[Rfam]
RNA sequence: GGGAGUCAGACCACUUAGUGCCACCAGUAUGAUGAUAAGCUGGUGCUGUCUGUCCUCAUCCCCAGGAGGACUGGGU
Numbered sequence: 001g002g003g004a005g006u007c008a009g010a011c012c013a014c015u016u017a018g019u020g021c022c023a024c025c026a027g028u029a030u031g032a033u034g035a036u037a038a039g040c041u042g043g044u045g046c047u048g049u050c051u052g053u054c055c056u057c058a059u060c061c062c063c064a065g066g067a068g069g070a071c072u073g074g075g076u
Base pairs, nucleotide, nucleotide: 005054007052008051009050010049011048012020013019014018024043025042026041061075062074063073064072065071
RNA: General Flavivirus exoribonuclease-resistant RNA element
Organism: Orthoflavivirus kokoberaorum